[Rfam]
Rfam assigns this 119-nucleotide sequence from Handroanthus impetiginosus to the family "Small nucleolar RNA Z278". From the family's description: snoZ278 is a C/D box small nucleolar RNA. Its methylation guide targets have not been reported. The family's RNA type in Rfam is C/D-box small nucleolar RNA.

RNA sequence: GUCAAUGAUGAGUUAAUUCGCAUAAUUGAGGUGUAGCUGAUCCUAAGUCCCUGAUUAUCAGGGAAAAUCUACGUGGGGUUGCUACAUCAUGCCAUGAAAUUAUUGGAAAUAUAUGGGAC
Numbered sequence: 001g002u003c004a005a006u007g008a009u010g011a012g013u014u015a016a017u018u019c020g021c022a023u024a025a026u027u028g029a030g031g032u033g034u035a036g037c038u039g040a041u042c043c044u045a046a047g048u049c050c051c052u053g054a055u056u057a058u059c060a061g062g063g064a065a066a067a068u069c070u071a072c073g074u075g076g077g078g079u080u081g082c083u084a085c086a087u088c089a090u091g092c093c094a095u096g097a098a099a100u101u102a103u104u105g106g107a108a109a110u111a112u113a114u115g116g117g118a119c
Stems, first nucleotide, its partner, number of pairs: 001119003049063005